[Rfam]
This 230-nucleotide RNA sequence from Mesorhabditis belari belongs to the Rfam family "Nuclear RNase P". The source organism's lineage runs through Eukaryota, Protostomia, Nematoda, Rhabditoidea and Mesorhabditis. Ribonuclease P (RNase P) is a ubiquitous endoribonuclease, found in archaea, bacteria and eukarya as well as chloroplasts and mitochondria. Its best characterised activity is the generation of mature 5'-ends of tRNAs by cleaving the 5'-leader elements of precursor-tRNAs. Cellular RNase Ps are ribonucleoproteins. RNA from bacterial RNase Ps retains its catalytic activity in the absence of the protein subunit, i.e. it is a ribozyme. Isolated eukaryotic and archaeal RNase P RNA has not been shown to retain its catalytic function, but is still essential for the catalytic activity of the holoenzyme. Although the archaeal and eukaryotic holoenzyme s have a much greater protein content than the bacterial ones, the RNA cores from all the three lineages are homologous -- helices corresponding to P1, P2, P3, P4, and P10/11 are common to all cellular RNase P RNAs. Yet, there is considerable sequence variation, particularly among the eukaryotic RNAs. The match comes from Rfam's covariance-model search (120 bits). Gene Ontology terms of the family: tRNA processing, ribonuclease P activity and ribonuclease P complex.
RNA sequence: GUGGUGAGAAGAUGACUUUGGGGUUGACUCGCAGAUCUUUAUGAUCUUUUCAACACCCCGGGAAGGUCUGAGGAAGGUCUGCAAAUGUCCUCGAGAUGGGGAACGAUUGAAUGAUCGUGAUCCCGAAGAAGAAAAGUCUCCCCUCGGGGAUUGGGACUCGGGAUCGACUAGCACCGAUCUCUGAGUGCGAUCGUCAUCAAAGAACACAAUUCAGACUACUCUCUCGCCAC
Numbered sequence: 001g002u003g004g005u006g007a008g009a010a011g012a013u014g015a016c017u018u019u020g021g022g023g024u025u026g027a028c029u030c031g032c033a034g035a036u037c038u039u040u041a042u043g044a045u046c047u048u049u050u051c052a053a054c055a056c057c058c059c060g061g062g063a064a065g066g067u068c069u070g071a072g073g074a075a076g077g078u079c080u081g082c083a084a085a086u087g088u089c090c091u092c093g094a095g096a097u098g099g100g101g102a103a104c105g106a107u108u109g110a111a112u113g114a115u116c117g118u119g120a121u122c123c124c125g126a127a128g129a130a131g132a133a134a135a136g137u138c139u140c141c142c143c144u145c146g147g148g149g150a151u152u153g154g155g156a157c158u159c160g161g162g163a164u165c166g167a168c169u170a171g172c173a174c175c176g177a178u179c180u181c182u183g184a185g186u187g188c189g190a191u192c193g194u195c196a197u198c199a200a201a202g203a204a205c206a207c208a209a210u211u212c213a214g215a216c217u218a219c220u221c222u223c224u225c226g227c228c229a230c
Base pairs, nucleotide, nucleotide: 001230002229003228004227007224008223009222017193020059021058022057023056024055033047034046035045036044037043068214069213070212071211072210076169077168078167079166088102089101090100091099092098103118104117105116106115107114108113119165120164121163122162123161124160125159139150140149141148